[Rfam]
RNA sequence: GGGUCAUUAGCUCAGUUGGUUUAGAGCGCUGCCUUGACAGGGCAGAGGUCAUUGGUUCGAAUCCAAUAUGACCCA
Numbered sequence: 001g002g003g004u005c006a007u008u009a010g011c012u013c014a015g016u017u018g019g020u021u022u023a024g025a026g027c028g029c030u031g032c033c034u035u036g037a038c039a040g041g042g043c044a045g046a047g048g049u050c051a052u053u054g055g056u057u058c059g060a061a062u063c064c065a066a067u068a069u070g071a072c073c074c075a
Base pairs, nucleotide, nucleotide: 001074002073003072004071005070006069007068010027011026012025013024029045030044031043032042033041051067052066053065054064055063

This 75-nucleotide RNA sequence from Ulvibacterium marinum belongs to the Rfam family "tRNA". Lineage of the source: Bacteria > Pseudomonadati > Flavobacteriales > Flavobacteriaceae > Ulvibacterium. Pairs were carried over by alignment from the consensus structure, which is taken from published work.